Description:
mir-219 microRNA precursor family: a 79-nucleotide RNA from Salarias fasciatus. It scores 69 bits against the family's covariance model. Lineage of the source: Eukaryota > Ctenosquamata > Percomorphaceae > Blenniiformes > Salarias. Its family is annotated with miRNA-mediated post-transcriptional gene silencing and RISC complex in the Gene Ontology.
[Rfam]
RNA sequence: UCUGGGGCUGAUUGUCCAAACGCAAUUCUUGUAAUACUUCUCAGUGCUCAGGAGUUGUGGAUGGACAUCAAGCCCCCGG
Numbered sequence: 001u002c003u004g005g006g007g008c009u010g011a012u013u014g015u016c017c018a019a020a021c022g023c024a025a026u027u028c029u030u031g032u033a034a035u036a037c038u039u040c041u042c043a044g045u046g047c048u049c050a051g052g053a054g055u056u057g058u059g060g061a062u063g064g065a066c067a068u069c070a071a072g073c074c075c076c077c078g079g
Stems, first nucleotide, its partner, number of pairs: 002078001004076004009070004014066005021059011